Rfam assigns this 297-nucleotide RNA sequence from Pseudothioglobus singularis to the family "permuted transfer-messenger RNA".

RNA sequence: GUAAAUGUUGAAGCAAAAUGGACACAUAUGGGACUCCGGGGCGGUACCGGACGGCUCCACCAUAGAUAUACUAUGCUACUUAGUAGUUGAUAAAACUGACAUUGCGAGAUGUUUUGAACCUGAUUGUUGAUACUUAACUAAAUGUUAAGAGGAGGCAGGAUAGUGUAUCUUUGAUGGGGCCGAAAUAGGAUCGACCAGUGUGAAGAUAGAGUGGAGUUUACCGGAUGACUGCGUUAUUGGUCAACAACUAUAAUUGCAAAUGACAAUUAUGCGCCAGACAUGGCAAUGGCAGCCUAA
Numbered sequence: 001g002u003a004a005a006u007g008u009u010g011a012a013g014c015a016a017a018a019u020g021g022a023c024a025c026a027u028a029u030g031g032g033a034c035u036c037c038g039g040g041g042c043g044g045u046a047c048c049g050g051a052c053g054g055c056u057c058c059a060c061c062a063u064a065g066a067u068a069u070a071c072u073a074u075g076c077u078a079c080u081u082a083g084u085a086g087u088u089g090a091u092a093a094a095a096c097u098g099a100c101a102u103u104g105c106g107a108g109a110u111g112u113u114u115u116g117a118a119c120c121u122g123a124u125u126g127u128u129g130a131u132a133c134u135u136a137a138c139u140a141a142a143u144g145u146u147a148a149g150a151g152g153a154g155g156c157a158g159g160a161u162a163g164u165g166u167a168u169c170u171u172u173g174a175u176g177g178g179g180c181c182g183a184a185a186u187a188g189g190a191u192c193g194a195c196c197a198g199u200g201u202g203a204a205g206a207u208a209g210a211g212u213g214g215a216g217u218u219u220a221c222c223g224g225a226u227g228a229c230u231g232c233g234u235u236a237u238u239g240g241u242c243a244a245c246a247a248c249u250a251u252a253a254u255u256g257c258a259a260a261u262g263a264c265a266a267u268u269a270u271g272c273g274c275c276a277g278a279c280a281u282g283g284c285a286a287u288g289g290c291a292g293c294c295u296a297a
Stems, first nucleotide, its partner, number of pairs: 001221005014211001025200003029197003035051005052182007222233002
It is annotated as a non-coding RNA gene. A reference for the family is Williams and Bartel (1996), "Phylogenetic analysis of tmRNA secondary structure", RNA. Rfam describes the family as follows. Bacterial tmRNA, also known as 10Sa RNA or SsrA, is named for its dual tRNA and mRNA-like properties.